[Rfam]
RNA sequence: UCCUCAGCGCGUGCUUGACGACGAUCUUGCCGAAGCUCACGCCCUUCAGCCGCGCGGUGCGGAUGUAUUGCUGGGUCAUCACCUCGGUCAUCGAGGCGCGGGUGAUGCGGGCGACAUAGCCCAUGCCGUAAAGCGCGAUGGUCAGCACCGGCAGGGUGAAGUUCGACAGCGUGAUGU
Number, nucleotide and partner (000 for none) at each position: 001u000002c000003c000004u141005c140006a139007g000008c137009g136010c135011g134012u133013g000014c000015u130016u128017g127018a000019c000020g000021a124022c000023g000024a000025u000026c000027u000028u123029g122030c000031c000032g000033a000034a000035g000036c000037u000038c113039a000040c111041g000042c109043c000044c000045u000046u105047c104048a103049g000050c101051c100052g099053c098054g097055c075056g000057g000058u000059g071060c070061g069062g068063a000064u000065g000066u000067a000068u062069u061070g060071c059072u000073g000074g000075g055076u000077c000078a000079u000080c000081a000082c096083c095084u094085c093086g092087g000088u000089c000090a000091u000092c086093g085094a084095g083096g082097c054098g053099c052100g051101g050102g000103u048104g047105a046106u000107g000108c000109g042110g000111g040112c000113g038114a000115c000116a000117u000118a000119g000120c000121c000122c029123a028124u021125g000126c000127c017128g016129u000130a015131a000132a000133g012134c011135g010136c009137g008138a000139u006140g005141g004142u000143c000144a000145g177146c176147a175148c173149c000150g000151g170152c169153a000154g163155g162156g000157u000158g000159a000160a000161g000162u155163u154164c000165g000166a000167c000168a000169g152170c151171g000172u000173g148174a000175u147176g146177u145
RNA: Ruegeria cis52 sRNA
Organism: Pararhodobacter aggregans